[Rfam]
RNA sequence: UAGUUAGAGGAAUGAUGUACUACCGACGAGCACUGAAGCUUCAGGCUUUUCUUGACAUGGCUACUGAAACCGGUAAGACUA
Number, nucleotide and partner (000 for none) at each position: 001u081002a080003g079004u078005u077006a000007g000008a000009g000010g000011a000012a000013u000014g000015a000016u000017g000018u000019a000020c000021u000022a000023c000024c000025g000026a000027c000028g000029a000030g000031c000032a000033c000034u000035g000036a000037a000038g000039c000040u000041u000042c000043a000044g000045g000046c000047u000048u000049u000050u000051c000052u000053u000054g000055a000056c000057a000058u000059g000060g000061c000062u000063a000064c000065u000066g000067a000068a000069a000070c000071c000072g000073g000074u000075a000076a000077g005078a004079c003080u002081a001

The record is an 81-nucleotide RNA sequence from Malus domestica, which matches "Small nucleolar RNA J33" in Rfam. Rfam links the family to the GO terms nucleolus and RNA processing. A search with the family's covariance model found it, with a score of 48 bits.